[Rfam]
Record summary: The family of this 139-nucleotide sequence from Digitaria exilis is "Small nucleolar RNA Z247". Rfam 15.1 lists 7,071 matches to the family in 142 species. Its family is annotated with RNA processing and nucleolus in the Gene Ontology. It is annotated as a C/D-box small nucleolar RNA. The organism belongs to Digitaria, within Eukaryota.
RNA sequence: AAACUUGAUGAUGAGGAUCUUGUGUCCUACAUCUUAGCAGGGUUGGAUGCUGAAUUCAAUCCUCUUGUCUCGGCAAUCGUGGCACACGUCGAGCCGAUCUUUGUUGGGGAGUUGAUCUCUCAGAUGGCUAGCUUUGAGC
Number, nucleotide and partner (000 for none) at each position: 001a000002a000003a000004c138005u137006u136007g135008a134009u000010g000011a000012u000013g000014a000015g000016g000017a000018u000019c000020u000021u000022g000023u000024g000025u000026c000027c000028u000029a000030c000031a000032u000033c000034u000035u000036a000037g000038c000039a000040g000041g000042g000043u000044u000045g000046g000047a000048u000049g000050c000051u000052g000053a000054a000055u000056u000057c000058a000059a000060u000061c000062c000063u000064c000065u000066u000067g000068u000069c000070u000071c000072g000073g000074c000075a000076a000077u000078c000079g000080u000081g000082g000083c000084a000085c000086a000087c000088g000089u107090c106091g105092a104093g000094c000095c000096g000097a000098u000099c000100u000101u000102u000103g000104u092105u091106g090107g089108g000109g000110a000111g000112u000113u000114g000115a000116u000117c000118u000119c000120u000121c000122a000123g000124a000125u000126g000127g000128c000129u000130a000131g000132c000133u000134u008135u007136g006137a005138g004139c000